Shown here is a 193-nucleotide RNA from Sphingobium indicum, a member of the family "Manganese Mn2+ riboswitch aptamer (yybP-ykoY)".
The match comes from Rfam's covariance-model search (50 bits).
Taxonomically the source falls in Sphingobium indicum (Bacteria, Pseudomonadota, Alphaproteobacteria, Sphingobium).
RNA sequence: UAGCGCGUCAUCUGGGGAGUAGCCAGCCGUUCCGACGCAAGGGAACGGGCCUUAUGUCAACAUAUUUGGCCGAGAGGUCAUGGCAUGGGGGACGCGGAAUUUCUGCGUAAGGCGAGACCAAUGGCAUCGGCGCUUUUCUGUCCGGCCGGGCGGCGAGCGACGGUGGCAUUGCGUCUAUCACUUCCGCCCGGCC
Numbered sequence: 001u002a003g004c005g006c007g008u009c010a011u012c013u014g015g016g017g018a019g020u021a022g023c024c025a026g027c028c029g030u031u032c033c034g035a036c037g038c039a040a041g042g043g044a045a046c047g048g049g050c051c052u053u054a055u056g057u058c059a060a061c062a063u064a065u066u067u068g069g070c071c072g073a074g075a076g077g078u079c080a081u082g083g084c085a086u087g088g089g090g091g092a093c094g095c096g097g098a099a100u101u102u103c104u105g106c107g108u109a110a111g112g113c114g115a116g117a118c119c120a121a122u123g124g125c126a127u128c129g130g131c132g133c134u135u136u137u138c139u140g141u142c143c144g145g146c147c148g149g150g151c152g153g154c155g156a157g158c159g160a161c162g163g164u165g166g167c168a169u170u171g172c173g174u175c176u177a178u179c180a181c182u183u184c185c186g187c188c189c190g191g192c193c
Base pairs, nucleotide, nucleotide: 027048028047029046030045031044032043050090051089052088053087054086055085056084057083058082059081067080068079069078070077071076096193097192